[Rfam]
RNA: leuA-Halobacteria RNA
RNA sequence: UAACCCGGAGGAUAGAGGAAGUCGCCGCGAGGCGGCUGGGUGUGAAAUUCGUG
Numbered sequence: 001u002a003a004c005c006c007g008g009a010g011g012a013u014a015g016a017g018g019a020a021g022u023c024g025c026c027g028c029g030a031g032g033c034g035g036c037u038g039g040g041u042g043u044g045a046a047a048u049u050c051g052u053g
Base pairs, nucleotide, nucleotide: 020037021036022035023034024033025032026031